Bacterial large subunit ribosomal RNA: a 234-nucleotide part of an RNA from Candidatus Epulonipiscium viviparus.

RNA sequence: GAGUUAUUUGUAGUGGCAAGGUUAAAUACACUAAUGUAUGAAGCCGAAGGGAAACCAAGUCUUAAUAGGGCGAACAAAGUCACUGCGAAUAGACCCGAAACUGGGUGACCUAUCCAUGUGCAGGUUGAAGUUACCGUAAAAGGUAAUGGAGGACCGAACUCACGUAUGUUGAAAAAUGCGGAGAUGACAUGUGGAUAGCGGAGAAAUUCCAAUCGAACCCAGAGAUAGCUGGUU
Numbered sequence: 001g002a003g004u005u006a007u008u009u010g011u012a013g014u015g016g017c018a019a020g021g022u023u024a025a026a027u028a029c030a031c032u033a034a035u036g037u038a039u040g041a042a043g044c045c046g047a048a049g050g051g052a053a054a055c056c057a058a059g060u061c062u063u064a065a066u067a068g069g070g071c072g073a074a075c076a077a078a079g080u081c082a083c084u085g086c087g088a089a090u091a092g093a094c095c096c097g098a099a100a101c102u103g104g105g106u107g108a109c110c111u112a113u114c115c116a117u118g119u120g121c122a123g124g125u126u127g128a129a130g131u132u133a134c135c136g137u138a139a140a141a142g143g144u145a146a147u148g149g150a151g152g153a154c155c156g157a158a159c160u161c162a163c164g165u166a167u168g169u170u171g172a173a174a175a176a177u178g179c180g181g182a183g184a185u186g187a188c189a190u191g192u193g194g195a196u197a198g199c200g201g202a203g204a205a206a207u208u209c210c211a212a213u214c215g216a217a218c219c220c221a222g223a224g225a226u227a228g229c230u231g232g233u234u
Stems, first nucleotide, its partner, number of pairs: 005091013020045004026039003049056002059071004094232002097229001101222006110198011121186001123155004130147006159183003163180005200210003
The sequence is in the family's curated seed alignment. Pairs were carried over by alignment from the consensus structure, which is taken from published work.